This 84-nucleotide sequence from Caenorhabditis japonica belongs to the Rfam family "mir-44 microRNA precursor family". The base pairs follow the family's consensus structure, which was predicted with RNAalifold. Gene Ontology terms of the family: miRNA-mediated post-transcriptional gene silencing and RISC complex.
[Rfam]
RNA sequence: GCUGGGCCGAUCUGGGUGUGCUCGUUAGUCAUAUAUCCGCACGGCUAUGAGUAUGACUAGAGACACAUUCAGCUUGGCUUCGAU
Numbered sequence: 001g002c003u004g005g006g007c008c009g010a011u012c013u014g015g016g017u018g019u020g021c022u023c024g025u026u027a028g029u030c031a032u033a034u035a036u037c038c039g040c041a042c043g044g045c046u047a048u049g050a051g052u053a054u055g056a057c058u059a060g061a062g063a064c065a066c067a068u069u070c071a072g073c074u075u076g077g078c079u080u081c082g083a084u
Stems, first nucleotide, its partner, number of pairs: 005079005012072009022063002027058007